Nucleotides: 047
Base pairs, nucleotide, nucleotide: 014033016031017030018029019028
Number, partner (000 for none) and nucleotide at each position: 001000g002000u003000u004000g005000u006000g007000a008000u009000u010000u011000g012000c013000u014033u015000c016031u017030a018029a019028a020000u021000u022000a023000c024000u025000a026000c027000c028019u029018u030017u031016g032000a033014g034000c035000c036000a037000u038000c039000a040000g041000a042000g043000a044000c045000a046000g047000c
Annotation:
Shown here is a 47-nucleotide RNA sequence from Bacteroides sp. CAG:462, a member of the family "CRISPR RNA direct repeat element". The match comes from Rfam's covariance-model search (42 bits).